[Rfam]
Source information:
This 235-nucleotide RNA sequence from Paenibacillus catalpae belongs to the Rfam family "T-box leader". The literature on the family includes a 1994 paper in J Bacteriol by Grundy et al., "Interaction between the acceptor end of tRNA and the T box stimulates antitermination in the Bacillus subtilis tyrS gene: a new role for the discriminator base". It is annotated as a cis-regulatory leader. A search with the family's covariance model found it, with a score of 98 bits.
RNA sequence: AUGUUGACGUUGAAGGGGAAGAGUAAGCAGCCAAGCCUUCAGAGAGCGGGACUGUAACGCUGAAAGGUACCGCAGGAAAUUACUGCUACGCUUGUCGCCCCGGAGUUGCUUGAAUGAAGCGGGAUGGUCCGUUAUUUCAAGCCGGCCGCAGCCGUUAUCUGUUUGAGUGCCGUGCUUUCCAUUUUGGAGCGCGGAACAAAGGUGGUACCACGGAAGAUAACCUUUCGUCCUUUGC
Numbered sequence: 001a002u003g004u005u006g007a008c009g010u011u012g013a014a015g016g017g018g019a020a021g022a023g024u025a026a027g028c029a030g031c032c033a034a035g036c037c038u039u040c041a042g043a044g045a046g047c048g049g050g051a052c053u054g055u056a057a058c059g060c061u062g063a064a065a066g067g068u069a070c071c072g073c074a075g076g077a078a079a080u081u082a083c084u085g086c087u088a089c090g091c092u093u094g095u096c097g098c099c100c101c102g103g104a105g106u107u108g109c110u111u112g113a114a115u116g117a118a119g120c121g122g123g124a125u126g127g128u129c130c131g132u133u134a135u136u137u138c139a140a141g142c143c144g145g146c147c148g149c150a151g152c153c154g155u156u157a158u159c160u161g162u163u164u165g166a167g168u169g170c171c172g173u174g175c176u177u178u179c180c181a182u183u184u185u186g187g188a189g190c191g192c193g194g195a196a197c198a199a200a201g202g203u204g205g206u207a208c209c210a211c212g213g214a215a216g217a218u219a220a221c222c223u224u225u226c227g228u229c230c231u232u233u234g235c
Stems, first nucleotide, its partner, number of pairs: 007106002015101004026087005036076003046073004051068002109141006143154003170194009199232004210228007
Dot-bracket structure: ......((......((((.......(((((.....(((.......((((.((..............)).)))))))......)))))..........))))...))..((((((.....................)))))).(((......)))...............(((((((((.......)))))))))....((((.......(((((((.....)))))))))))...